The record is a 66-nucleotide RNA sequence, which matches "pemK RNA" in Rfam.
Nucleotides: 066
Base pairs, nucleotide, nucleotide: 012063013031014030015029016028032050033049034048036046037045038044051062052061053060
Number, partner (000 for none) and nucleotide at each position: 001000a002000c003000a004000a005000u006000g007000a008000u009000a010000c011000u012063u013031c014030u015029g016028u017000a018000g019000c020000c021000g022000a023000a024000a025000g026000g027000c028016g029015c030014a031013g032050c033049u034048c035000g036046c037045g038044g039000a040000g041000u042000a043000c044038c045037c046036g047000g048034g049033a050032g051062a052061g053060g054000u055000a056000a057000g058000a059000g060053c061052c062051u063012a064000u065000g066000a

Description
Rfam classes the family as a cis-regulatory element. It is one of the family's seed sequences.